[Rfam]
RNA: ASpks TB sRNA
Organism: Streptomyces kaniharaensis
RNA sequence: CUUGAUCGAGCCCAGCCACAGGGGGCCGUGCUCGCGUUCCUGACCGUAGGUGGCCAGCAGGGCCUGAGCCUC
Numbered sequence: 001c002u003u004g005a006u007c008g009a010g011c012c013c014a015g016c017c018a019c020a021g022g023g024g025g026c027c028g029u030g031c032u033c034g035c036g037u038u039c040c041u042g043a044c045c046g047u048a049g050g051u052g053g054c055c056a057g058c059a060g061g062g063c064c065u066g067a068g069c070c071u072c
Base pairs, nucleotide, nucleotide: 016024017023031068032067033066035062040057041056042055044053045052046051